[Rfam]
RNA sequence: UUCUGGCAGAUGCUCGGAUUUGUACAUGUCUCUGGUUAAUGCUGCUCAUAACCAACGUUGAAGCAGCAGUGG
Number, nucleotide and partner (000 for none) at each position: 001u000002u000003c000004u000005g000006g023007c022008a021009g020010a019011u018012g000013c000014u000015c000016g000017g000018a011019u010020u009021u008022g007023u006024a000025c066026a000027u065028g064029u063030c000031u061032c000033u000034g058035g000036u000037u055038a000039a000040u000041g000042c000043u000044g000045c000046u000047c000048a000049u000050a000051a000052c000053c000054a000055a037056c000057g000058u034059u000060g000061a031062a000063g029064c028065a027066g025067c000068a000069g000070u000071g000072g000
RNA: Hepatitis C virus stem-loop SL2531 and SL2549AU